The family of this 70-nucleotide RNA sequence from Orthohepacivirus hominis is "Hepatitis C virus stem-loop VII". Rfam's curators put it in the seed alignment. It is annotated as a cis-regulatory element. The base pairs follow the family's consensus structure, which was predicted with RNAfold.
RNA sequence: AAAGCUCAUUUCCCAAGGAGGAAAGGCCAAAAUUUGCGGCCUUUACCUCUUCAAUUGGGCAGUGCGCACA
Number, nucleotide and partner (000 for none) at each position: 001a000002a000003a000004g000005c000006u000007c064008a063009u062010u061011u000012c059013c058014c057015a056016a055017g050018g049019a048020g047021g046022a000023a000024a000025g000026g040027c039028c038029a000030a000031a000032a000033u000034u000035u000036g000037c000038g028039g027040c026041c000042u000043u000044u000045a000046c021047c020048u019049c018050u017051u000052c000053a000054a000055u016056u015057g014058g013059g012060c000061a010062g009063u008064g007065c000066g000067c000068a000069c000070a000